[Rfam]
Nucleotides: 092
Stems, first nucleotide, its partner, number of pairs: 006089003011085002013082005019075002022072002026069009035055005040049001
Number, partner (000 for none) and nucleotide at each position: 001000c002000u003000g004000g005000c006089c007088g008087g009000c010000g011085u012084c013082c014081u015080g016079g017078g018000u019075g020074g021000g022072g023071c024000g025000g026069g027068c028067c029066g030065u031064g032063g033062g034061a035055c036054c037053g038052c039051c040049c041000u042000c043000g044000u045000g046000u047000c048000u049040g050000u051039g052038g053037c054036g055035g056000u057000g058000g059000g060000a061034u062033c063032c064031c065030g066029c067028g068027g069026u070000c071023g072022u073000g074020c075019u076000u077000u078017c079016c080015c081014a082013g083000u084012g085011g086000c087008c088007c089006g090000a091000c092000c
Rfam assigns this 92-nucleotide sequence from Aotus nancymaae to the family "mir-663 microRNA precursor family".
Rfam links the family to the GO terms miRNA-mediated post-transcriptional gene silencing and RISC complex.
A search with the family's covariance model found it, with a score of 79 bits.
Pairs were carried over by alignment from the consensus structure, which was predicted with RNAalifold.
On this family, see Takada et al., Leukemia 2008: "MicroRNA expression profiles of human leukemias".